[Rfam]
RNA sequence: GGGUCCUGUACUGAGCUGCCCCGAGGCCCUGUAUUGCCCCGCUCGGGGCAGCUCAGUACAGGGUGC
Numbered sequence: 001g002g003g004u005c006c007u008g009u010a011c012u013g014a015g016c017u018g019c020c021c022c023g024a025g026g027c028c029c030u031g032u033a034u035u036g037c038c039c040c041g042c043u044c045g046g047g048g049c050a051g052c053u054c055a056g057u058a059c060a061g062g063g064u065g066c
Stems, first nucleotide, its partner, number of pairs: 008059011020047006

This 66-nucleotide RNA sequence from Microcebus murinus belongs to the Rfam family "mir-486 microRNA precursor family". Rfam links the family to the GO terms RISC complex and miRNA-mediated post-transcriptional gene silencing. Rfam 15.1 lists 224 matches to the family in 130 species. Pairs were carried over by alignment from the consensus structure, which was predicted with RNAalifold.